[Rfam]
This 46-nucleotide RNA sequence from Singulisphaera acidiphila belongs to the Rfam family "Acido-Lenti-1 RNA". It scores 43 bits against the family's covariance model. Pairs were carried over by alignment from the consensus structure, which is taken from published work. It is annotated as a small RNA. Lineage of the source: Bacteria > Pseudomonadati > Planctomycetota > Planctomycetia > Singulisphaera acidiphila.
RNA sequence: CCAGGGGGUGAACCCCCUGGCUACAGACGGUCGCCCCUUCAGGGCU
Numbered sequence: 001c002c003a004g005g006g007g008g009u010g011a012a013c014c015c016c017c018u019g020g021c022u023a024c025a026g027a028c029g030g031u032c033g034c035c036c037c038u039u040c041a042g043g044g045c046u
Stems, first nucleotide, its partner, number of pairs: 001020008033045004